[Rfam]
RNA: S15-Flavobacteria ribosomal protein leader
RNA sequence: UAUCUUUGCCGGCUCAACGAGAUAGCCUCGUUGAAUACAUAAAAACUAUUUAAAUAAUAUUGGCAUG
Dot-bracket structure: .............((((((.........)))))).................................